[Rfam]
RNA sequence: GAGUGAAAUGAUGUUUACCAUCUUUCGGGACUUACUUUGAACUGGUGACAACUUUUUAUACUACUGAUCACUC
Numbered sequence: 001g002a003g004u005g006a007a008a009u010g011a012u013g014u015u016u017a018c019c020a021u022c023u024u025u026c027g028g029g030a031c032u033u034a035c036u037u038u039g040a041a042c043u044g045g046u047g048a049c050a051a052c053u054u055u056u057u058a059u060a061c062u063a064c065u066g067a068u069c070a071c072u073c
Base pairs, nucleotide, nucleotide: 001073002072003071004070005069006068